[Rfam]
Nucleotides: 231
Stems, first nucleotide, its partner, number of pairs: 005088004010083008019043004025037003047054002057069004091229002094226001098219006107195011118183001120152004127144006156180003161176004197207003
Number, partner (000 for none) and nucleotide at each position: 001000g002000a003000g004000u005088u006087a007086c008085u009000a010083a011082g012081u013080g014079c015078a016077g017076c018000u019043g020042g021041u022040u023000a024000a025037g026036c027035a028000a029000u030000u031000a032000a033000g034000u035027u036026g037025c038000g039000c040022a041021g042020c043019c044000g045000a046000a047054g048053c049000g050000a051000a052000a053048g054047c055000g056000a057069g058068u059067c060066u061000g062000a063000a064000u065000a066060g067059g068058g069057c070000g071000u072000u073000u074000u075000a076017g077016u078015u079014g080013c081012a082011c083010u084000g085008a086007g087006u088005a089000g090000a091229c092228c093000c094226g095000a096000a097000g098219c099218c100217g101216g102215g103214u104000g105000a106000u107195c108194u109193a110192u111191c112190c113189a114188u115187g116186g117185c118183c119000a120152g121151g122150g123149u124000g125000a126000a127144g128143u129142g130141a131140a132139g133000g134000u135000a136000a137000u138000a139132c140131u141130u142129c143128g144127c145000g146000g147000a148000g149123g150122c151121c152120c153000g154000a155000a156180c157179c158178a159000g160000u161176c162175a163174a164173c165000g166000u167000g168000g169000c170000a171000a172000a173164g174163u175162u176161g177000u178158u179157g180156g181000a182000u183118g184000a185117g186116c187115u188114g189113u190112g191111g192110a193109u194108a195107g196000c197207g198206g199205u200000u201000a202000u203000a204000u205199g206198c207197c208000a209000a210000a211000c212000g213000a214103a215102c216101c217100c218099g219098g220000g221000g222000a223000u224000a225000g226094c227000u228092g229091g230000u231000u

The record is a 231-nucleotide part of an RNA from Dehalococcoides mccartyi, which matches "Bacterial large subunit ribosomal RNA" in Rfam.
The base pairs follow the family's consensus structure, which is taken from published work.
It is one of the family's seed sequences.